freshwater-2 RNA: an 86-nucleotide RNA sequence. It is one of the family's seed sequences. By type it is a cis-regulatory element.

RNA sequence: AGCCGCAUAAAGUGGCGGACUUAUGCUGCACCACAGCGUACCGGAUAGAACCCGGAUAGGACUACUUUUAUAGGAGAAAACAAAUG
Number, nucleotide and partner (000 for none) at each position: 001a000002g016003c015004c014005g013006c012007a000008u000009a000010a000011a000012g006013u005014g004015g003016c002017g000018g000019a000020c000021u000022u040023a039024u038025g037026c036027u035028g034029c000030a000031c000032c000033a000034c028035a027036g026037c025038g024039u023040a022041c055042c054043g053044g052045a000046u000047a000048g000049a000050a000051c000052c044053c043054g042055g041056a000057u000058a000059g000060g000061a000062c000063u000064a000065c000066u000067u000068u000069u000070a000071u000072a000073g000074g000075a000076g000077a000078a000079a000080a000081c000082a000083a000084a000085u000086g000